[Rfam]
Nucleotides: 102
Base pairs, nucleotide, nucleotide: 019087020086021085022084023083024082025081030048031047032046033045034044035043058078059077060076061075062074063073064072
Number, partner (000 for none) and nucleotide at each position: 001000a002000g003000a004000a005000u006000a007000g008000c009000g010000a011000a012000a013000a014000u015000a016000g017000a018000g019087c020086u021085u022084c023083a024082u025081a026000u027000a028000u029000c030048c031047u032046c033045g034044g035043g036000a037000a038000u039000a040000c041000g042000g043035c044034c045033u046032g047031a048030g049000a050000g051000u052000c053000u054000c055000u056000a057000c058078c059077g060076g061075g062074u063073u064072a065000c066000c067000g068000a069000a070000a071000a072064u073063a074062a075061c076060c077059u078058g079000a080000c081025u082024a083023u084022g085021a086020a087019g088000g089000c090000g091000g092000a093000a094000c095000g096000u097000g098000a099000c100000g101000u102000u